Overview:
A member of the RNA family "mir-160 microRNA precursor family" from Zingiber officinale, 88 nucleotides long. The literature on the family includes a 2002 paper in Cell by Rhoades et al., "Prediction of plant microRNA targets". The match comes from Rfam's covariance-model search (80 bits).
RNA sequence: UUGUGCCUGGCUCCCUGUAUGCCACACAAGUAGACCAAUCCAUGGAGAGAUUGGCCGAUAUGGGUGGCGUGCAAGGAGUCAAGCAUGC
Numbered sequence: 001u002u003g004u005g006c007c008u009g010g011c012u013c014c015c016u017g018u019a020u021g022c023c024a025c026a027c028a029a030g031u032a033g034a035c036c037a038a039u040c041c042a043u044g045g046a047g048a049g050a051u052u053g054g055c056c057g058a059u060a061u062g063g064g065u066g067g068c069g070u071g072c073a074a075g076g077a078g079u080c081a082a083g084c085a086u087g088c
Base pairs, nucleotide, nucleotide: 002087003086004085005084006083008081009080010079011078012077013076014075016073017072018071019070020069021068022067023066024065027062028061